Notes:
The family of this 58-nucleotide sequence from Caiophora cirsiifolia is "Plastid-psbA-3 3UTR RNA". The sequence is in the family's curated seed alignment. It is annotated as a cis-regulatory element.

RNA sequence: AAAGGAGCAAUACCACCCCUCUUGAUCAAACAAGAAAUUGGUUAUUGCUCCUUUAUUU
Numbered sequence: 001a002a003a004g005g006a007g008c009a010a011u012a013c014c015a016c017c018c019c020u021c022u023u024g025a026u027c028a029a030a031c032a033a034g035a036a037a038u039u040g041g042u043u044a045u046u047g048c049u050c051c052u053u054u055a056u057u058u
Stems, first nucleotide, its partner, number of pairs: 001054012014041001020035005
Description: Its Rfam clan is "Plastid-psbA 3UTR RNA clan". About the family: Plastid psbA-3 is a non-coding RNA (ncRNA) present in plastids. It was identified in inverted repeat sequences in the 3 prime untranslate region (3UTR) of photosystem II quinone-binding protein (psbA). The family's consensus secondary structure was predicted with LocARNA. The source organism's lineage runs through Eukaryota, Euphyllophyta, asterids, Cornales and Caiophora.